[Rfam]
RNA sequence: GAGCGCUUGCCGCCCCGUCGUCACGGCGGCAGGGCCAAUGCGCCAUUUGAUCUGGUCACGCCGCUGGCUCACAAGGCCACCGAUAGGCGCAUCACGGAUAUCGGCAGCAGUGGCUGCGCUGAUCCGGCGCAGUUACCCGGAUGAAGCCGCCAGCCUCGUUCGGGCGAUGUGAAUAGCGUGAUUCCUCG
Numbered sequence: 001g002a003g004c005g006c007u008u009g010c011c012g013c014c015c016c017g018u019c020g021u022c023a024c025g026g027c028g029g030c031a032g033g034g035c036c037a038a039u040g041c042g043c044c045a046u047u048u049g050a051u052c053u054g055g056u057c058a059c060g061c062c063g064c065u066g067g068c069u070c071a072c073a074a075g076g077c078c079a080c081c082g083a084u085a086g087g088c089g090c091a092u093c094a095c096g097g098a099u100a101u102c103g104g105c106a107g108c109a110g111u112g113g114c115u116g117c118g119c120u121g122a123u124c125c126g127g128c129g130c131a132g133u134u135a136c137c138c139g140g141a142u143g144a145a146g147c148c149g150c151c152a153g154c155c156u157c158g159u160u161c162g163g164g165c166g167a168u169g170u171g172a173a174u175a176g177c178g179u180g181a182u183u184c185c186u187c188g
Stems, first nucleotide, its partner, number of pairs: 004042003012035004017030005056181006062082002065079005087130004095126004101122002104117005133167002136164009146154001148153001
Dot-bracket structure: ...(((.....((((.(((((....))))).))))....))).............((((((((.(((((.....))))).))....((((....((((..((.(((((....)))))...))))))))))..((.(((((((((.(.(....)).))))))))).))........)))))).......
This 188-nucleotide sequence from Allopusillimonas soli belongs to the Rfam family "RT-15 RNA".
Taxonomically the source falls in Allopusillimonas (Bacteria, Pseudomonadota, Betaproteobacteria, Alcaligenaceae).